[Rfam]
RNA sequence: UUGCAUUAAAUAAAACAACAAUGAACACAAUUUUAAACAAUACUUGGUGGUGGAACAAUUUACGUCAAACGUCGUGAACUAAGCUCCUAUGGUAUUUUUUUAAAACUAUAAAUAUAAAAGGCUUGUC
Numbered sequence: 001u002u003g004c005a006u007u008a009a010a011u012a013a014a015a016c017a018a019c020a021a022u023g024a025a026c027a028c029a030a031u032u033u034u035a036a037a038c039a040a041u042a043c044u045u046g047g048u049g050g051u052g053g054a055a056c057a058a059u060u061u062a063c064g065u066c067a068a069a070c071g072u073c074g075u076g077a078a079c080u081a082a083g084c085u086c087c088u089a090u091g092g093u094a095u096u097u098u099u100u101u102a103a104a105a106c107u108a109u110a111a112a113u114a115u116a117a118a119a120g121g122c123u124u125g126u127c
Stems, first nucleotide, its partner, number of pairs: 036099002040095005047088001049087002052084001057080001059078003062072003